[Rfam]
Nucleotides: 068
Base pairs, nucleotide, nucleotide: 001068002067003066004065005064014051015050016049017048018047019046020045021044022043023042029040030039031038
Number, partner (000 for none) and nucleotide at each position: 001068c002067u003066c004065u005064g006000u007000u008000u009000a010000u011000g012000a013000u014051g015050c016049u017048u018047c019046u020045c021044c022043c023042a024000u025000a026000a027000a028000a029040c030039c031038c032000u033000a034000u035000u036000a037000a038031g039030g040029g041000c042023u043022g044021g045020g046019a047018g048017a049016g050015g051014c052000u053000g054000a055000g056000c057000a058000a059000a060000a061000c062000c063000u064005c065004a066003g067002a068001g

Record summary: Rfam assigns this 68-nucleotide sequence from Monodelphis domestica to the family "Selenocysteine insertion sequence 1". From the family's description: The incorporation of selenocysteine into a protein sequence is directed by an in-frame UGA codon (usually a stop codon) within the coding region of the mRNA. Selenoprotein mRNAs contain a conserved secondary structure in the 3' UTR that is required for the distinction of UGA stop from UGA selenocysteine. The selenocysteine insertion sequence (SECIS) is around 60 nt in length and adopts a hairpin structure which is sufficiently well-defined and conserved to act as a computational screen for selenoprotein genes. It is annotated as a cis-regulatory element. The family's consensus secondary structure is taken from published work. The organism belongs to Monodelphis, within Eukaryota.